[Rfam]
RNA sequence: AAUCUGAUCAAACUACUCAGGGCCUUUAAUAAGACACUUUGUACGAAUUUUUGGAAACGCCUGCUUAGGUAGGGGUUG
Numbered sequence: 001a002a003u004c005u006g007a008u009c010a011a012a013c014u015a016c017u018c019a020g021g022g023c024c025u026u027u028a029a030u031a032a033g034a035c036a037c038u039u040u041g042u043a044c045g046a047a048u049u050u051u052u053g054g055a056a057a058c059g060c061c062u063g064c065u066u067a068g069g070u071a072g073g074g075g076u077u078g
Base pairs, nucleotide, nucleotide: 020037022035024033025032026031056077057076058075060073061072062071063070064069
RNA: SmY spliceosomal RNA
Organism: Ancylostoma duodenale